The family of this 53-nucleotide sequence from Aureimonas endophytica is "sul1 RNA".
NCBI's taxonomy places the organism under Bacteria, Pseudomonadati, Pseudomonadota, Alphaproteobacteria, Aureimonas.

RNA sequence: UUUGGACCCGUUUGAUCGGGUGGCUACGCUGGGCGCCGAUCCCCCGGCCAAUU
Dot-bracket structure: .....(((((......)))))......((((((.........)))))).....